Rfam assigns this 293-nucleotide RNA from Citrobacter freundii to the family "isrF Hfq binding RNA". A reference for the family is Padalon-Brauch et al. (2008), "Small RNAs encoded within genetic islands of Salmonella typhimurium show host-induced expression and role in virulence", Nucleic Acids Res.
RNA sequence: AGAUUAUCCAGGAGAUCCACGAGUUAAUCCUGGCCGGUGAAAUCGAAGUCGCAAAAGGAAUGCUGCGCACGCUGAUUAAGGUCACGUGCGGUUAUCCAGCGAUUUCAGACGAGGUCGGCAGGAAUUCAAAAUCAAUUAUGCGCAUGUUGUCGCCGGAUGUGGAUCCGGGUGUCAAAGCGUUUAUGGCUGUUGUCAGAGCUGCAGAGCGUCAGUCUGAGAAAGUAGCGGCCCAGGCAAAAAUACAUUAAGUCAGAAACCGUCACGACGAACCGGCCACAAUGGCCGGUUUUUUU
Numbered sequence: 001a002g003a004u005u006a007u008c009c010a011g012g013a014g015a016u017c018c019a020c021g022a023g024u025u026a027a028u029c030c031u032g033g034c035c036g037g038u039g040a041a042a043u044c045g046a047a048g049u050c051g052c053a054a055a056a057g058g059a060a061u062g063c064u065g066c067g068c069a070c071g072c073u074g075a076u077u078a079a080g081g082u083c084a085c086g087u088g089c090g091g092u093u094a095u096c097c098a099g100c101g102a103u104u105u106c107a108g109a110c111g112a113g114g115u116c117g118g119c120a121g122g123a124a125u126u127c128a129a130a131a132u133c134a135a136u137u138a139u140g141c142g143c144a145u146g147u148u149g150u151c152g153c154c155g156g157a158u159g160u161g162g163a164u165c166c167g168g169g170u171g172u173c174a175a176a177g178c179g180u181u182u183a184u185g186g187c188u189g190u191u192g193u194c195a196g197a198g199c200u201g202c203a204g205a206g207c208g209u210c211a212g213u214c215u216g217a218g219a220a221a222g223u224a225g226c227g228g229c230c231c232a233g234g235c236a237a238a239a240a241u242a243c244a245u246u247a248a249g250u251c252a253g254a255a256a257c258c259g260u261c262a263c264g265a266c267g268a269a270c271c272g273g274c275c276a277c278a279a280u281g282g283c284c285g286g287u288u289u290u291u292u293u
Stems, first nucleotide, its partner, number of pairs: 035259004057231002062226005118127001140180004147175003153168006233243001267289009